[Rfam]
RNA sequence: UCUAGGGGCAUAGGUUCGGUUUCUCUCCGAUUUCUGAGGCCACUUCCCCGGCUUCAGAGAGCGGAGGGGAUCCAAGCUUAUGGCCUGACGGAAG
Numbered sequence: 001u002c003u004a005g006g007g008g009c010a011u012a013g014g015u016u017c018g019g020u021u022u023c024u025c026u027c028c029g030a031u032u033u034c035u036g037a038g039g040c041c042a043c044u045u046c047c048c049c050g051g052c053u054u055c056a057g058a059g060a061g062c063g064g065a066g067g068g069g070a071u072c073c074a075a076g077c078u079u080a081u082g083g084c085c086u087g088a089c090g091g092a093a094g
Stems, first nucleotide, its partner, number of pairs: 010081007018073002021070009031060010
About this RNA
Shown here is a 94-nucleotide sequence from Winkia neuii, a member of the family "mraW RNA". Lineage of the source: Bacteria > Actinomycetota > Actinomycetes > Winkia > Winkia neuii. It scores 52 bits against the family's covariance model.